[Rfam]
RNA sequence: UGCAGCCCGCCGAACUCUGCCGGCAGCCCAAGGGUUGAAACAGGCAGAGACGGAGGAACCAAUCGGCCGAGGAGGCCUGUGGAGAGCCGUGUGCUCAAAACGGGAGCCGGGGCCUGGGGUGAAGCCAGACCGCAAGGUACGGCCGGAUGACUCGCAUCCGAACCCGGCAGCUAACUUCGCAGGCGCUAACGAGAGGUUUC
Dot-bracket structure: .......((((...(((((((.....................))))))).(((((....((.....................................................))(((.....((..............))..((((.......))))...))).........)))))..))))...............
A member of the RNA family "c-di-AMP riboswitch aptamer (ydaO/yuaA leader)" from Sinomonas humi, 200 nucleotides long.
Lineage of the source: Bacteria > Bacillati > Actinomycetota > Actinomycetes > Sinomonas.